[Rfam]
RNA sequence: CUUCAUGGAGCCGAGCCACAGCGGUCGGCCCUCCGGCCGGUUCUGGCCGUACGUGGCGAGCAGUGCCUGCGCCUC
Numbered sequence: 001c002u003u004c005a006u007g008g009a010g011c012c013g014a015g016c017c018a019c020a021g022c023g024g025u026c027g028g029c030c031c032u033c034c035g036g037c038c039g040g041u042u043c044u045g046g047c048c049g050u051a052c053g054u055g056g057c058g059a060g061c062a063g064u065g066c067c068u069g070c071g072c073c074u075c
Stems, first nucleotide, its partner, number of pairs: 015025003031071001033069001038065002043060002047056003